Small nucleolar RNA SNORA28: a 124-nucleotide sequence from Phyllostomus discolor. It scores 104 bits against the family's covariance model. A reference for the family is Huttenhofer et al. (2001), "RNomics: an experimental approach that identifies 201 candidates for novel, small, non-messenger RNAs in mouse", EMBO J. Rfam's curators write: ACA28 is a member of the H/ACA class of snoRNA that guide the sites of modification of uridines to pseudouridines. Its Rfam clan is "SNORA28 clan".
[Rfam]
RNA sequence: UUUAAUUUCACUGUGGCAGAUGAUCAAAACUGUCUGACACAAUUUGAGCUUGCUAUAGCAACGGAGUCUAACCUAUUCUGGCACUCUCCUCCAUGCGACAAGCCAUUAUACAGUCUUAGACAGU
Numbered sequence: 001u002u003u004a005a006u007u008u009c010a011c012u013g014u015g016g017c018a019g020a021u022g023a024u025c026a027a028a029a030c031u032g033u034c035u036g037a038c039a040c041a042a043u044u045u046g047a048g049c050u051u052g053c054u055a056u057a058g059c060a061a062c063g064g065a066g067u068c069u070a071a072c073c074u075a076u077u078c079u080g081g082c083a084c085u086c087u088c089c090u091c092c093a094u095g096c097g098a099c100a101a102g103c104c105a106u107u108a109u110a111c112a113g114u115c116u117u118a119g120a121c122a123g124u
Stems, first nucleotide, its partner, number of pairs: 009048001011046001012041004017036006064117003068113002074110003079105004085098002088095001